[Rfam]
Notes
The family of this 114-nucleotide sequence from Dokdonia sinensis is "Bacteroidete tryptophan peptide leader RNA". The family's consensus secondary structure is taken from published work. Taxonomically the source falls in Dokdonia (Bacteria, Pseudomonadati, Flavobacteriales, Flavobacteriaceae). Gene Ontology terms of the family: regulation of gene expression and S-adenosylmethionine metabolic process.
RNA sequence: UUGCUAUCUUUGAGGCUCAAAUGAAAAAUAACACAGUACAUACUUGGUGGUGGAACAUACAACGUAACCCGUCGUAAGCCACGCCCGUAUGUCUAUAUCAUAUUAAAGCCUGUC
Numbered sequence: 001u002u003g004c005u006a007u008c009u010u011u012g013a014g015g016c017u018c019a020a021a022u023g024a025a026a027a028a029u030a031a032c033a034c035a036g037u038a039c040a041u042a043c044u045u046g047g048u049g050g051u052g053g054a055a056c057a058u059a060c061a062a063c064g065u066a067a068c069c070c071g072u073c074g075u076a077a078g079c080c081a082c083g084c085c086c087g088u089a090u091g092u093c094u095a096u097a098u099c100a101u102a103u104u105a106a107a108g109c110c111u112g113u114c
Base pairs, nucleotide, nucleotide: 036098037097038096040094042092043091045089046088049085050084051083052082056078060074062072063071064070